[Rfam]
RNA sequence: GAGUUUAUUCUGUUGGCGACGGUUAAUUUCUAUGAAAGAAGCCAGAGGGAAACCAACAAGUCCGCAGCCGUAAGGUCAGGGACGACGUACUACCAGUGCGUGGAGUCAGCAGGAUAAGACCCGAAGCCCGGCGAUCUAUGCGUGGGCAGGUUGAAGCGUGCCGAAAGGUGCGUGGAGGACCGCAAGCGGUUUUGAUAUGCAAAUCAUUCGCGUGACCUGCGUAUAGGAGUGAAAGAUUAAUCGAGCCGGGCAUCAGCUGGUU
Number, nucleotide and partner (000 for none) at each position: 001g000002a000003g000004u000005u117006u116007a115008u114009u113010c112011u111012g110013u109014u108015g107016g106017c105018g000019a000020c000021g043022g042023u041024u040025a000026a000027u037028u036029u035030c034031u000032a000033u000034g030035a029036a028037a027038g000039a000040a024041g023042c022043c021044a000045g000046a000047g054048g053049g000050a000051a000052a000053c048054c047055a000056a000057c000058a000059a000060g083061u082062c081063c080064g000065c000066a000067g076068c075069c074070g000071u000072a000073a000074g069075g068076u067077c000078a000079g000080g063081g062082a061083c060084g000085a000086c100087g099088u098089a097090c000091u000092a000093c000094c000095a000096g000097u089098g088099c087100g086101u000102g000103g000104a000105g017106u016107c015108a014109g013110c012111a011112g010113g009114a008115u007116a006117a005118g000119a000120c260121c259122c000123g257124a000125a000126g000127c250128c249129c248130g247131g246132c245133g000134a000135u000136c226137u225138a224139u223140g222141c221142g220143u219144g218145g217146g216147c214148a000149g181150g180151u179152u178153g000154a000155a000156g173157c172158g171159u170160g169161c168162c167163g000164a000165a000166a000167g162168g161169u160170g159171c158172g157173u156174g000175g000176a000177g000178g152179a151180c150181c149182g000183c000184a000185a000186g211187c210188g209189g208190u000191u000192u206193u000194g205195a204196u000197a000198u000199g000200c000201a000202a000203a000204u195205c194206a192207u000208u189209c188210g187211c186212g000213u000214g147215a000216c146217c145218u144219g143220c142221g141222u140223a139224u138225a137226g136227g000228a238229g237230u236231g000232a000233a000234a000235g000236a230237u229238u228239a000240a000241u000242c000243g000244a000245g132246c131247c130248g129249g128250g127251c000252a000253u000254c000255a000256g000257c123258u000259g121260g120261u000262u000
A member of the RNA family "Archaeal large subunit ribosomal RNA" from Methanospirillum hungatei, 262 nucleotides of a longer RNA. Rfam links the family to the GO terms ribosome and structural constituent of ribosome. The literature on the family includes a 2002 paper in BMC Bioinformatics by Cannone et al., "The comparative RNA web (CRW) site: an online database of comparative sequence and structure information for ribosomal, intron, and other RNAs". The sequence is in the family's curated seed alignment. The family is grouped with related families in Rfam's "LSU clan".